Shown here is a 75-nucleotide RNA sequence from Morus notabilis, a member of the family "Plastid-ycf2 5UTR RNA".
Taxonomically the source falls in Morus (Eukaryota, Streptophytina, Mesangiospermae, Pentapetalae).
It scores 80 bits against the family's covariance model.
A reference for the family is Richter et al. (2023), "Retrograde signaling in plants: A critical review focusing on the GUN pathway and beyond", Plant Commun.
Plastid ycf2 is a non-coding RNA (ncRNA) recognised in plastids. It was found in the prime untranslated region (5UTR) of ycf2 genes, it presents a tRNA-like motif which suggests it can be involved in mRNA maturation, particularly involved in defining the precise 5' end of the transcript.
RNA sequence: GUGCAUUCAGUAGGAAUUGAACCUAUGAAUUCACUAAUUAUAAGUUGAACGCUUUAACCAUUCAACCAUAGAUGC
Numbered sequence: 001g002u003g004c005a006u007u008c009a010g011u012a013g014g015a016a017u018u019g020a021a022c023c024u025a026u027g028a029a030u031u032c033a034c035u036a037a038u039u040a041u042a043a044g045u046u047g048a049a050c051g052c053u054u055u056a057a058c059c060a061u062u063c064a065a066c067c068a069u070a071g072a073u074g075c
Base pairs, nucleotide, nucleotide: 003075004074005073006072007071010026011025012024013023014022040069041068044066045065046064047063048062049061051059
Dot-bracket structure: ..(((((..(((((.......))))).............((..((((((.(.......).)))))).)).)))))